[Rfam]
RNA sequence: UCCAUUACACUACCCUGCCUCUUCUCUAUGAGAGGCAGCGGGGUGUAGUGGAU
Numbered sequence: 001u002c003c004a005u006u007a008c009a010c011u012a013c014c015c016u017g018c019c020u021c022u023u024c025u026c027u028a029u030g031a032g033a034g035g036c037a038g039c040g041g042g043g044u045g046u047a048g049u050g051g052a053u
Stems, first nucleotide, its partner, number of pairs: 001052011013041002015038009

This 53-nucleotide sequence from Tupaia belangeri belongs to the Rfam family "mir-885 microRNA precursor family". The family has 11 seed sequences and 120 matches in Rfam 15.1. The source organism's lineage runs through Eukaryota, Dipnotetrapodomorpha, Boreoeutheria, Tupaia and Tupaia belangeri. The family's consensus secondary structure was predicted with RNAalifold.